The family of this 171-nucleotide RNA sequence from Vagococcus elongatus is "Group II catalytic intron D1-D4-3". About the family: Group II introns are found in rRNA, tRNA and mRNA of organelles in fungi, plants and protists, and also in mRNA in bacteria. The match comes from Rfam's covariance-model search (138 bits). The source organism's lineage runs through Bacteria, Bacillati, Bacillota, Bacilli and Vagococcus. The literature on the family includes a 2001 paper in Trends Genet by Bonen and Vogel, "The ins and outs of group II introns".
RNA sequence: UCCACGGCGACGUGGAAUCUGAAGGAAACUGGAAGCAAAAUCCCGAACCGACGAACAGAAAUCACAUCAGGCUGAUUUAGAGUGGACGAGUUUACGAUACAAAACAAAGUCCAAUACUACCCGAACUAUACACAGUAAAUGUGACGGUUACAUGGGAUGAAGGUUGUUGUU
Numbered sequence: 001u002c003c004a005c006g007g008c009g010a011c012g013u014g015g016a017a018u019c020u021g022a023a024g025g026a027a028a029c030u031g032g033a034a035g036c037a038a039a040a041u042c043c044c045g046a047a048c049c050g051a052c053g054a055a056c057a058g059a060a061a062u063c064a065c066a067u068c069a070g071g072c073u074g075a076u077u078u079a080g081a082g083u084g085g086a087c088g089a090g091u092u093u094a095c096g097a098u099a100c101a102a103a104a105c106a107a108a109g110u111c112c113a114a115u116a117c118u119a120c121c122c123g124a125a126c127u128a129u130a131c132a133c134a135g136u137a138a139a140u141g142u143g144a145c146g147g148u149u150a151c152a153u154g155g156g157a158u159g160a161a162g163g164u165u166g167u168u169g170u171u
Stems, first nucleotide, its partner, number of pairs: 001016006028171001030169003035164002040158006046149005062144005071136003076132001078130002081127002084112004090105004